[Rfam]
RNA: Translational regulator of tfoXVC
Organism: Grimontia hollisae
RNA sequence: AUUCUAGGUAGUGUGUGGUCUCCCACCACUACCGGCAGCAAGCGAAGGUGUCUUUGACGCCCGUGGUAUGGCCAUCAGGCUAUACCACGCUCUUUUUUU
Numbered sequence: 001a002u003u004c005u006a007g008g009u010a011g012u013g014u015g016u017g018g019u020c021u022c023c024c025a026c027c028a029c030u031a032c033c034g035g036c037a038g039c040a041a042g043c044g045a046a047g048g049u050g051u052c053u054u055u056g057a058c059g060c061c062c063g064u065g066g067u068a069u070g071g072c073c074a075u076c077a078g079g080c081u082a083u084a085c086c087a088c089g090c091u092c093u094u095u096u097u098u099u
Stems, first nucleotide, its partner, number of pairs: 009031005015026004035043002047061006062089012